This 61-nucleotide sequence belongs to the Rfam family "nhaA-I RNA". Rfam classes the family as a riboswitch. About the family: Acidobacteria, Alphaproteobacteria, Betaproteobacteria and Gammaproteobacteria, Verrucomicrobia, cand. division NC10.
[Rfam]
RNA sequence: GGGUGCGUCGCUGCAUAAGUACGGCGCAGGUUAAAGCCAAGCAUUGGUCGGGCCGCCAAUG
Numbered sequence: 001g002g003g004u005g006c007g008u009c010g011c012u013g014c015a016u017a018a019g020u021a022c023g024g025c026g027c028a029g030g031u032u033a034a035a036g037c038c039a040a041g042c043a044u045u046g047g048u049c050g051g052g053c054c055g056c057c058a059a060u061g
Base pairs, nucleotide, nucleotide: 005027006026007025008024009023010022012021042061043060044059045058046057047056048055